[Rfam]
RNA: mir-310 microRNA precursor family
Organism: Drosophila erecta
RNA sequence: UAGUUUUUCGGACGGUAUCUGCGUCAAUAUUUCCUUGUUAGAAUAUAUUGCACAUUCACCGGCCUGAAAAUAU
Numbered sequence: 001u002a003g004u005u006u007u008u009c010g011g012a013c014g015g016u017a018u019c020u021g022c023g024u025c026a027a028u029a030u031u032u033c034c035u036u037g038u039u040a041g042a043a044u045a046u047a048u049u050g051c052a053c054a055u056u057c058a059c060c061g062g063c064c065u066g067a068a069a070a071u072a073u
Base pairs, nucleotide, nucleotide: 003071004070005069006068007067010064011063013061014060016058020054021053023051025050026049027048028047029046030045
Dot-bracket structure: ..(((((..((.((.(...((.(.((((((..............))))))).))...).)).))..)))))..